[Rfam]
RNA sequence: UCAUGCCUGGCUCCCUGUAUGCCACAAGUGGGUAUCAAUUUUGGUUGAAAAAUUGGCUGCUGGUGGCGUACGAGGAGCCAAGCAUGA
Numbered sequence: 001u002c003a004u005g006c007c008u009g010g011c012u013c014c015c016u017g018u019a020u021g022c023c024a025c026a027a028g029u030g031g032g033u034a035u036c037a038a039u040u041u042u043g044g045u046u047g048a049a050a051a052a053u054u055g056g057c058u059g060c061u062g063g064u065g066g067c068g069u070a071c072g073a074g075g076a077g078c079c080a081a082g083c084a085u086g087a
Stems, first nucleotide, its partner, number of pairs: 001087006008080007016072009027061003

The family of this 87-nucleotide RNA sequence from Brassica oleracea is "mir-160 microRNA precursor family". Taxonomically the source falls in Brassica oleracea (Eukaryota, Viridiplantae, Tracheophyta, malvids). The literature on the family includes a 2002 paper in Cell by Rhoades et al., "Prediction of plant microRNA targets".